[Rfam]
Nucleotides: 080
Base pairs, nucleotide, nucleotide: 004051005050006049007048008047009046010045011044012043015040016039017068018067019066020065021064024037025036026035027034057075059073060072061071
Number, partner (000 for none) and nucleotide at each position: 001000a002000g003000a004051c005050a006049g007048u008047u009046a010045u011044a012043u013000g014000a015040c016039u017068g018067a019066c020065g021064g022000a023000a024037g025036u026035g027034g028000a029000g030000a031000a032000u033000a034027c035026c036025a037024c038000a039016g040015g041000g042000a043012g044011u045010a046009u047008a048007a049006c050005u051004g052000a053000u054000a055000u056000g057075c058000a059073g060072c061071c062000g063000a064021c065020c066019g067018u068017c069000u070000g071061g072060g073059c074000a075057g076000a077000u078000u079000g080000u

ZMP/ZTP riboswitch aptamer (pfl RNA motif): an 80-nucleotide sequence from Clostridium sp. CAG:230.
Gene Ontology terms of the family: one-carbon metabolic process and regulation of purine nucleotide biosynthetic process.
A reference for the family is Jones and Ferre-D'Amare (2015), "Recognition of the bacterial alarmone ZMP through long-distance association of two RNA subdomains", Nat Struct Mol Biol.